Notes: Rfam assigns this 391-nucleotide RNA sequence from Aspergillus homomorphus to the family "RNase MRP". RNase MRP is an enzymatically active ribonucleoprotein with two distinct roles in eukaryotes. The source organism's lineage runs through Eukaryota, Ascomycota, Eurotiales, Aspergillaceae and Aspergillus homomorphus.
[Rfam]
RNA sequence: UCCUCGCUCAAAGAAUCGCAUUCAAAGCUCACACGCGGAGAAAAUCUCUUCGAGGGUUUCUCUUUCACCUAGCUUUUGGGAAAGUCCCCGGACACCCUGACUGUUUAAAUUGUCCCUCGUGGGCCCAGUCAGGCAAUGCGGAAACGCGCCGCCAUAGAAGCAAUUCGAUAGCGGCUGAUUGCCCUGUUUCCUCCCAGUGCUGGCAUCUGUAUCCGACGCUAGAGAGGGCUUCCUUCUCUGGUGGAAACAAUGGUGGUAUUGACUUGUGCUGGAGAGGAGUUUUGAUCUGGGUUGCCUUUCGUCGUGUUUGGAUAGUCAUGCGAUUGCCUGCUAUUUCACCCUUCGGGGCUUGGAAGUGGGUAACUCAAUGGGGCUCAUUCUUGAGGCGAGG
Numbered sequence: 001u002c003c004u005c006g007c008u009c010a011a012a013g014a015a016u017c018g019c020a021u022u023c024a025a026a027g028c029u030c031a032c033a034c035g036c037g038g039a040g041a042a043a044a045u046c047u048c049u050u051c052g053a054g055g056g057u058u059u060c061u062c063u064u065u066c067a068c069c070u071a072g073c074u075u076u077u078g079g080g081a082a083a084g085u086c087c088c089c090g091g092a093c094a095c096c097c098u099g100a101c102u103g104u105u106u107a108a109a110u111u112g113u114c115c116c117u118c119g120u121g122g123g124c125c126c127a128g129u130c131a132g133g134c135a136a137u138g139c140g141g142a143a144a145c146g147c148g149c150c151g152c153c154a155u156a157g158a159a160g161c162a163a164u165u166c167g168a169u170a171g172c173g174g175c176u177g178a179u180u181g182c183c184c185u186g187u188u189u190c191c192u193c194c195c196a197g198u199g200c201u202g203g204c205a206u207c208u209g210u211a212u213c214c215g216a217c218g219c220u221a222g223a224g225a226g227g228g229c230u231u232c233c234u235u236c237u238c239u240g241g242u243g244g245a246a247a248c249a250a251u252g253g254u255g256g257u258a259u260u261g262a263c264u265u266g267u268g269c270u271g272g273a274g275a276g277g278a279g280u281u282u283u284g285a286u287c288u289g290g291g292u293u294g295c296c297u298u299u300c301g302u303c304g305u306g307u308u309u310g311g312a313u314a315g316u317c318a319u320g321c322g323a324u325u326g327c328c329u330g331c332u333a334u335u336u337c338a339c340c341c342u343u344c345g346g347g348g349c350u351u352g353g354a355a356g357u358g359g360g361u362a363a364c365u366c367a368a369u370g371g372g373g374c375u376c377a378u379u380c381u382u383g384a385g386g387c388g389a390g391g
Stems, first nucleotide, its partner, number of pairs: 002391006008384004014325006022078001024076005038062006083375002086373004099114003186296001188294001193291005206285002209282001217279001219277002327360006